[Rfam]
RNA sequence: GGAUGUGAGGGCGAUCUGGUUGUGACAUCUGUCACCCCACAGAUUGCCAGGGUUGAUUCGGCUGAUCUGGCUGGCUAGGCAGGUGUCCCCUUCCUCCCUCACUGCUCCACGUGCGUCCCGCCCGAAGCUGUGUGCUCGGUCAAAGAGGAUGACCUUCCCUGAUAGAGGAGAGGACCCUUCUUCAGUCAAGGGUAUAGGAGUAGCUGUGCUCCCCAGCUAGGACCUCCAAACAAGCUCUCAAGGUCCAUUUGUAGGGGAACAUAGGAUAGUCAAGACUCCAGACACAUCCAAAUGAGGCGCUGCACGUGGCAGUCUGCCUUUCAAA
Numbered sequence: 001g002g003a004u005g006u007g008a009g010g011g012c013g014a015u016c017u018g019g020u021u022g023u024g025a026c027a028u029c030u031g032u033c034a035c036c037c038c039a040c041a042g043a044u045u046g047c048c049a050g051g052g053u054u055g056a057u058u059c060g061g062c063u064g065a066u067c068u069g070g071c072u073g074g075c076u077a078g079g080c081a082g083g084u085g086u087c088c089c090c091u092u093c094c095u096c097c098c099u100c101a102c103u104g105c106u107c108c109a110c111g112u113g114c115g116u117c118c119c120g121c122c123c124g125a126a127g128c129u130g131u132g133u134g135c136u137c138g139g140u141c142a143a144a145g146a147g148g149a150u151g152a153c154c155u156u157c158c159c160u161g162a163u164a165g166a167g168g169a170g171a172g173g174a175c176c177c178u179u180c181u182u183c184a185g186u187c188a189a190g191g192g193u194a195u196a197g198g199a200g201u202a203g204c205u206g207u208g209c210u211c212c213c214c215a216g217c218u219a220g221g222a223c224c225u226c227c228a229a230a231c232a233a234g235c236u237c238u239c240a241a242g243g244u245c246c247a248u249u250u251g252u253a254g255g256g257g258a259a260c261a262u263a264g265g266a267u268a269g270u271c272a273a274g275a276c277u278c279c280a281g282a283c284a285c286a287u288c289c290a291a292a293u294g295a296g297g298c299g300c301u302g303c304a305c306g307u308g309g310c311a312g313u314c315u316g317c318c319u320u321u322c323a324a325a
Base pairs, nucleotide, nucleotide: 001108002107003106005102006101007100008099009098010097011096013093014092018090019089024087025086026085027084028083029082030081031080032079033078035074036073037070038069039068042067043066044065045064046062047061048060116173117172118168119167121165122139123138124137125136127135128134140162141161142160147158148157149156204274205273209269210268213265214264216262224257225256226255227254230252231251232250233249234248294320295319296318297317298316299313300312301311302310303309
The record is a 325-nucleotide RNA from Gulo gulo, which matches "7SK RNA" in Rfam. Rfam's curators write: 7SK was discovered as an abundant small nuclear RNA in the mid-70s but a possible function has only recently been suggested. Two independent studies have found that 7SK RNA binds the CDK9/cyclin T complex (known as elongation factor P-TEFb). P-TEFb activates transcription by phosphorylating the C-terminal domain of RNA polymerase II. This process is negatively regulated by the 7SK RNP. The secondary structure of 7SK RNA shown here was proposed by Wasserman and Steitz on the basis of chemical modification and enzymatic cleavage experiments. This family contains a number of annotated pseudogenes and 7SK derived repeats. Lineage of the source: Eukaryota > Deuterostomia > Tetrapoda > Carnivora > Gulo. A search with the family's covariance model found it, with a score of 320 bits. The literature on the family includes a 2002 paper in Curr Biol by Blencowe, "Transcription: surprising role for an elusive small nuclear RNA".